[Rfam]
RNA sequence: AUAAUGAUACUCCUACCUUGAACGCUUCACGGCAUUGGGUAGCUUCUCCAAGUUUGAGUUGAGGUGAAAAUCCUGUGG
Numbered sequence: 001a002u003a004a005u006g007a008u009a010c011u012c013c014u015a016c017c018u019u020g021a022a023c024g025c026u027u028c029a030c031g032g033c034a035u036u037g038g039g040u041a042g043c044u045u046c047u048c049c050a051a052g053u054u055u056g057a058g059u060u061g062a063g064g065u066g067a068a069a070a071u072c073c074u075g076u077g078g
Stems, first nucleotide, its partner, number of pairs: 012075001013042006043061001047057002062074003
The family of this 78-nucleotide RNA from Facklamia miroungae is "pemK RNA".
By type it is a cis-regulatory element.